This 49-nucleotide RNA sequence from Xanthobacter tagetidis belongs to the Rfam family "Guanidine-II riboswitch aptamer (mini-ykkC)". The family's consensus secondary structure is taken from published work.
[Rfam]
RNA sequence: CAGGGCGGACGACCGCCCCCAUCCGUUCGAACCCGGCGGGACGACCCGC
Numbered sequence: 001c002a003g004g005g006c007g008g009a010c011g012a013c014c015g016c017c018c019c020c021a022u023c024c025g026u027u028c029g030a031a032c033c034c035g036g037c038g039g040g041a042c043g044a045c046c047c048g049c
Stems, first nucleotide, its partner, number of pairs: 003018006036049005